[Rfam]
A member of the RNA family "Glycine riboswitch aptamer" from Bacillus benzoevorans, 78 nucleotides long. Rfam's curators write: This family represents the bacterial glycine riboswitch. The organism belongs to Bacillus, within Bacteria.
RNA sequence: CUCUGGAGAGUGCAAAUUUAUUGCCACCAAAGGGGACCCGCUAUUUUGCGGGAGAAUCUUUCAGGUAAAAGGACAGAG
Numbered sequence: 001c002u003c004u005g006g007a008g009a010g011u012g013c014a015a016a017u018u019u020a021u022u023g024c025c026a027c028c029a030a031a032g033g034g035g036a037c038c039c040g041c042u043a044u045u046u047u048g049c050g051g052g053a054g055a056a057u058c059u060u061u062c063a064g065g066u067a068a069a070a071g072g073a074c075a076g077a078g
Base pairs, nucleotide, nucleotide: 001078002077003076004075005074012024013023014022015021026066027065028064030061033060034059035058038052